Shown here is a 165-nucleotide RNA from Cuscuta europaea, a member of the family "small nucleolar RNA snoR143".
The match comes from Rfam's covariance-model search (83 bits).
The family's RNA type in Rfam is H/ACA-box small nucleolar RNA.
The family's consensus secondary structure was predicted with RNAalifold.
RNA sequence: GUGCACAGGUGACAGCGUCGUUAAGCUUAAUUUUCUGACGCAGGAUCCAUAGUGCAUAGAGAGAAAGCUGAGCAAGAAUCAGCGGCGGCCAGACAACCGCUGAGAUGAGAUCCACAGAUGAGUUUGAACACCAUAAAACUUGUCUACUAAAACCAUCUUACAUCU
Numbered sequence: 001g002u003g004c005a006c007a008g009g010u011g012a013c014a015g016c017g018u019c020g021u022u023a024a025g026c027u028u029a030a031u032u033u034u035c036u037g038a039c040g041c042a043g044g045a046u047c048c049a050u051a052g053u054g055c056a057u058a059g060a061g062a063g064a065a066a067g068c069u070g071a072g073c074a075a076g077a078a079u080c081a082g083c084g085g086c087g088g089c090c091a092g093a094c095a096a097c098c099g100c101u102g103a104g105a106u107g108a109g110a111u112c113c114a115c116a117g118a119u120g121a122g123u124u125u126g127a128a129c130a131c132c133a134u135a136a137a138a139c140u141u142g143u144c145u146a147c148u149a150a151a152a153c154c155a156u157c158u159u160a161c162a163u164c165u
Stems, first nucleotide, its partner, number of pairs: 002056005008048002013043001015041006023032001102159006109153001121141002123138003
Its family is annotated with nucleolus and RNA processing in the Gene Ontology. On this family, see Chen and Wu, Nucleic Acids Res 2009: "Mining small RNA sequencing data: a new approach to identify small nucleolar RNAs in Arabidopsis". Lineage of the source: Eukaryota > Tracheophyta > lamiids > Cuscuta > Cuscuta subgen. Cuscuta.